[Rfam]
RNA sequence: AUUAGUCUUUGUGGCAUGAGGAGAAUCCCUACCGAUGGUUACAGUUCAUGACCCAUAUUUUAUAAUAUGGCUGAGUUAGUAAAAUUCUAAUAUCGACGGUUAAAGUUCAGAUGAGAAAAGACAUUU
Numbered sequence: 001a002u003u004a005g006u007c008u009u010u011g012u013g014g015c016a017u018g019a020g021g022a023g024a025a026u027c028c029c030u031a032c033c034g035a036u037g038g039u040u041a042c043a044g045u046u047c048a049u050g051a052c053c054c055a056u057a058u059u060u061u062a063u064a065a066u067a068u069g070g071c072u073g074a075g076u077u078a079g080u081a082a083a084a085u086u087c088u089a090a091u092a093u094c095g096a097c098g099g100u101u102a103a104a105g106u107u108c109a110g111a112u113g114a115g116a117a118a119a120g121a122c123a124u125u126u
Base pairs, nucleotide, nucleotide: 005122006121007120008119009118010117018028031106032105033095034094035049036048037047038046044093045092053070054069075091076090077089078088079087098108099107